[Rfam]
RNA sequence: UGAAAGCGAUGAAGUGAAAGGUUGCUAAGAUUUGCUUAGGGAAUUUUCACGGAGAAGUCCGGAGAAAUAUCGGGCGA
Numbered sequence: 001u002g003a004a005a006g007c008g009a010u011g012a013a014g015u016g017a018a019a020g021g022u023u024g025c026u027a028a029g030a031u032u033u034g035c036u037u038a039g040g041g042a043a044u045u046u047u048c049a050c051g052g053a054g055a056a057g058u059c060c061g062g063a064g065a066a067a068u069a070u071c072g073g074g075c076g077a
Stems, first nucleotide, its partner, number of pairs: 014050003018047004025039005057075006
Background
A member of the RNA family "S10-Clostridia ribosomal protein leader" from Thermincola carboxydiphila, 77 nucleotides long. Pairs were carried over by alignment from the consensus structure, which is taken from published work. The source organism's lineage runs through Bacteria, Bacillati, Thermincolaceae, Thermincola and Thermincola carboxydiphila.